[Rfam]
RNA: tRNA
RNA sequence: GACAACAUGGCCGAGCGGUUAAGGCGUGAGACUCGAAAUCUCAUGGGCUAUGCCCGCGCAGGUUCGAGUCCUGCUGUUGUCG
Dot-bracket structure: (((((((..(((..........))).(((((.......)))))..............(((((.......)))))))))))).
Numbered sequence: 001g002a003c004a005a006c007a008u009g010g011c012c013g014a015g016c017g018g019u020u021a022a023g024g025c026g027u028g029a030g031a032c033u034c035g036a037a038a039u040c041u042c043a044u045g046g047g048c049u050a051u052g053c054c055c056g057c058g059c060a061g062g063u064u065c066g067a068g069u070c071c072u073g074c075u076g077u078u079g080u081c082g
Stems, first nucleotide, its partner, number of pairs: 001081007010025003027043005058074005